[Rfam]
Rfam assigns this 36-nucleotide RNA from Actinobaculum sp. 352 to the family "abiF RNA".
Actinobacteria, Bacteroidetes, Clostridia, Proteobacteria, one Clostridia phage.
Lineage of the source: Bacteria > Actinomycetes > Actinomycetales > Actinomycetaceae > Actinobaculum.
RNA sequence: CCGGCCAGGCCUCUCUACGAUGCCCAAAUGGCCGGG
Numbered sequence: 001c002c003g004g005c006c007a008g009g010c011c012u013c014u015c016u017a018c019g020a021u022g023c024c025c026a027a028a029u030g031g032c033c034g035g036g
Stems, first nucleotide, its partner, number of pairs: 001035006008024003
It is annotated as a small RNA.